[Rfam]
Nucleotides: 270
Stems, first nucleotide, its partner, number of pairs: 001270004036249002045227008063210004067123007080109002083106006089099001131189001133188005146174003152168004
Number, partner (000 for none) and nucleotide at each position: 001270g002269g003268u004267c005000a006000a007000u008000g009000a010000u011000g012000a013000c014000a015000a016000a017000g018000a019000a020000g021000u022000u023000u024000u025000c026000u027000g028000a029000g030000g031000g032000c033000a034000c035000a036249g037248g038000g039000a040000a041000a042000u043000u044000c045227c046226a047225c048224c049223c050222c051221a052220u053000u054000a055000g056000c057000u058000c059000u060000u061000g062000g063210c064209u065208c066207c067123c068122a069121g070120c071119a072118g073117u074000c075000c076000u077000u078000a079000u080109u081108c082000u083106a084105u085104c086103a087102u088101g089099c090000c091000g092000u093000a094000g095000u096000a097000g098000a099089g100000u101088u102087g103086u104085g105084a106083u107000u108081g109080a110000g111000g112000a113000a114000g115000a116000g117073a118072u119071u120070g121069c122068u123067g124000a125000c126000a127000g128000u129000u130000u131189g132000g133188g134187a135186u136185u137184a138000a139000u140000u141000c142000a143000g144000u145000u146174c147173c148172a149000g150000u151000u152168c153167u154166c155165c156000a157000c158000a159000g160000u161000g162000a163000a164000g165155g166154g167153a168152g169000u170000u171000g172148u173147g174146g175000c176000a177000c178000c179000a180000a181000a182000u183000g184137u185136a186135a187134u188133c189131c190000a191000a192000c193000a194000a195000a196000c197000c198000u199000g200000g201000u202000g203000a204000a205000g206000a207066g208065g209064a210063g211000c212000u213000c214000a215000u216000g217000g218000u219000g220052g221051u222050g223049g224048g225047g226046u227045g228000u229000c230000c231000u232000c233000a234000u235000u236000u237000g238000c239000u240000g241000u242000g243000c244000a245000u246000g247000a248037u249036c250000a251000a252000a253000g254000g255000u256000u257000u258000u259000c260000a261000a262000g263000c264000u265000g266000a267004g268003a269002c270001c